A member of the RNA family "Mammalian CPEB3 ribozyme" from Alligator sinensis, 74 nucleotides long. About the family: The mammalian CPEB3 ribozyme is a self cleaving RNA located in the second intron of the CPEB3 gene which belongs to a family of genes regulating messenger RNA polyadenylation. It scores 51 bits against the family's covariance model. The source organism's lineage runs through Eukaryota, Gnathostomata, Archosauria, Alligatorinae and Alligator.
RNA sequence: CCAGGAUGUCAGGCCAUAGCAGAAGUGCUCAUGGCAUGGCCCUAUCAGAUUCCAAUGAAUCGGCGAAUUCUGCU
Numbered sequence: 001c002c003a004g005g006a007u008g009u010c011a012g013g014c015c016a017u018a019g020c021a022g023a024a025g026u027g028c029u030c031a032u033g034g035c036a037u038g039g040c041c042c043u044a045u046c047a048g049a050u051u052c053c054a055a056u057g058a059a060u061c062g063g064c065g066a067a068u069u070c071u072g073c074u
Stems, first nucleotide, its partner, number of pairs: 012041004018074007025037003046063001048061005